The family of this 106-nucleotide RNA sequence from Celeribacter halophilus is "TPP riboswitch aptamer (THI element)".

[Rfam]
RNA sequence: CUACAUAACCAGGGGCGCUCCGGCAGGAGCUGAGAUACGCAUGAUGCGUAGACCCUUUACAGCUGAUCUGGGUAAUGCCAGCGGAGCGAGGUACUUAAAUGUUCAU
Numbered sequence: 001c002u003a004c005a006u007a008a009c010c011a012g013g014g015g016c017g018c019u020c021c022g023g024c025a026g027g028a029g030c031u032g033a034g035a036u037a038c039g040c041a042u043g044a045u046g047c048g049u050a051g052a053c054c055c056u057u058u059a060c061a062g063c064u065g066a067u068c069u070g071g072g073u074a075a076u077g078c079c080a081g082c083g084g085a086g087c088g089a090g091g092u093a094c095u096u097a098a099a100u101g102u103u104c105a106u
Base pairs, nucleotide, nucleotide: 008092009091010090011056012055013054014053017030018029019028020027021026037049038048039047040046041045062087063086064085068081069080070079071078